[Rfam]
RNA: Plastid-clpP 5UTR RNA
Organism: Ananas comosus
RNA sequence: UAUUUUGUUCCUAAGAGCUCAGAGAAGUAGAUUUAUCCUAUAACCGAUAAGUACCACUAUGCAAUGGG
Numbered sequence: 001u002a003u004u005u006u007g008u009u010c011c012u013a014a015g016a017g018c019u020c021a022g023a024g025a026a027g028u029a030g031a032u033u034u035a036u037c038c039u040a041u042a043a044c045c046g047a048u049a050a051g052u053a054c055c056a057c058u059a060u061g062c063a064a065u066g067g068g
Stems, first nucleotide, its partner, number of pairs: 003022002007018004044067002051060003